[Rfam]
RNA sequence: GUACCUUGGCAAGGGGCCAUGGCAGGAGCUUUCACGUGGCUGUCCCUGUCAGCCUUAAAGAUUGCAAAUCUUGCU
Numbered sequence: 001g002u003a004c005c006u007u008g009g010c011a012a013g014g015g016g017c018c019a020u021g022g023c024a025g026g027a028g029c030u031u032u033c034a035c036g037u038g039g040c041u042g043u044c045c046c047u048g049u050c051a052g053c054c055u056u057a058a059a060g061a062u063u064g065c066a067a068a069u070c071u072u073g074c075u
Stems, first nucleotide, its partner, number of pairs: 013046005021075007028040003050064003054060002

This 75-nucleotide RNA from Gopherus evgoodei belongs to the Rfam family "Mammalian CPEB3 ribozyme". Taxonomically the source falls in Gopherus (Eukaryota, Vertebrata, Sauria, Durocryptodira). The base pairs follow the family's consensus structure, which is taken from published work.